This 76-nucleotide sequence from Ceutorhynchus assimilis belongs to the Rfam family "mir-980 microRNA precursor family".
RNA sequence: UAUGCAAUAGGGCUUUUCAUAAGGCUGCAUGCGUUUUUUUUACUGCAAGCUGCCUUUUGAAGGGCAUUGUUGCUAU
Numbered sequence: 001u002a003u004g005c006a007a008u009a010g011g012g013c014u015u016u017u018c019a020u021a022a023g024g025c026u027g028c029a030u031g032c033g034u035u036u037u038u039u040u041u042a043c044u045g046c047a048a049g050c051u052g053c054c055u056u057u058u059g060a061a062g063g064g065c066a067u068u069g070u071u072g073c074u075a076u
Stems, first nucleotide, its partner, number of pairs: 004073007012065004017060003023054002028049001030047003
Dot-bracket structure: ...(((((((.((((.(((...((...(.(((............))).)...))...))).)))).)))))))...
It scores 56 bits against the family's covariance model.